[Rfam]
RNA sequence: CACCCGACGGGGCAGGCGCCAUGCGCCGGCUGGAAUUGGAACAGGGGCUGGCCAAGUGCCCGCCGGGGAAGCACAAGGGCCGAAUGUCGGGGGACAUUCGGCCCUUUUUUU
Numbered sequence: 001c002a003c004c005c006g007a008c009g010g011g012g013c014a015g016g017c018g019c020c021a022u023g024c025g026c027c028g029g030c031u032g033g034a035a036u037u038g039g040a041a042c043a044g045g046g047g048c049u050g051g052c053c054a055a056g057u058g059c060c061c062g063c064c065g066g067g068g069a070a071g072c073a074c075a076a077g078g079g080c081c082g083a084a085u086g087u088c089g090g091g092g093g094a095c096a097u098u099c100g101g102c103c104c105u106u107u108u109u110u111u
Stems, first nucleotide, its partner, number of pairs: 003067004008062004012057002016026003028053006036045002075106014
Annotation: A member of the RNA family "Xanthomonadaceae sRNA asX1" from Marilutibacter alkalisoli, 111 nucleotides long. On this family, see Schmidtke et al., Nucleic Acids Res 2011: "Genome-wide transcriptome analysis of the plant pathogen Xanthomonas identifies sRNAs with putative virulence functions". By type it is a small RNA. Lineage of the source: Bacteria > Pseudomonadota > Lysobacterales > Lysobacteraceae > Marilutibacter. Pairs were carried over by alignment from the consensus structure, which was predicted with CMfinder.